[Rfam]
RNA sequence: CAGGUUCCGGUUCACGUCCGAUCUUCAGCACGAUUUGGCGACCCGGCGACC
Numbered sequence: 001c002a003g004g005u006u007c008c009g010g011u012u013c014a015c016g017u018c019c020g021a022u023c024u025u026c027a028g029c030a031c032g033a034u035u036u037g038g039c040g041a042c043c044c045g046g047c048g049a050c051c
Stems, first nucleotide, its partner, number of pairs: 003051003007046004015040004020035004

Description:
The family of this 51-nucleotide RNA is "L31-Actinobacteria ribosomal protein leader". The family is grouped with related families in Rfam's "Ribosomal Protein L31 Leader clan". The sequence is in the family's curated seed alignment. Rfam classes the family as a cis-regulatory leader. The literature on the family includes a 2020 paper in BMC Microbiol by Eckert and Weinberg, "Discovery of 20 novel ribosomal leader candidates in bacteria and archaea".